FMN riboswitch aptamer (RFN element): a 170-nucleotide RNA sequence from Martelella endophytica. Lineage of the source: Bacteria > Pseudomonadati > Alphaproteobacteria > Aurantimonadaceae > Martelella.
RNA sequence: UGACGUUCUCAGGGCGGGGUGAAAUUCCCCACCGGCGGUAAUUGCUCCUCUGGAGCAUCAGCCCGCGAGCGCCUCUUUCGAUCGCAGGACAGUUCUUGCCGAAGAAGAGGGUCAGCAGAUCCGGUGUGAUUCCGGAGCCGACGGUAUAGUCCGGAUGGAAGAGAACAGGC
Numbered sequence: 001u002g003a004c005g006u007u008c009u010c011a012g013g014g015c016g017g018g019g020u021g022a023a024a025u026u027c028c029c030c031a032c033c034g035g036c037g038g039u040a041a042u043u044g045c046u047c048c049u050c051u052g053g054a055g056c057a058u059c060a061g062c063c064c065g066c067g068a069g070c071g072c073c074u075c076u077u078u079c080g081a082u083c084g085c086a087g088g089a090c091a092g093u094u095c096u097u098g099c100c101g102a103a104g105a106a107g108a109g110g111g112u113c114a115g116c117a118g119a120u121c122c123g124g125u126g127u128g129a130u131u132c133c134g135g136a137g138c139c140g141a142c143g144g145u146a147u148a149g150u151c152c153g154g155a156u157g158g159a160a161g162a163g164a165a166c167a168g169g170c
Stems, first nucleotide, its partner, number of pairs: 005166006017029003031150002033140002035066004061138002069116002120136005142153003
Annotation
A search with the family's covariance model found it, with a score of 116 bits.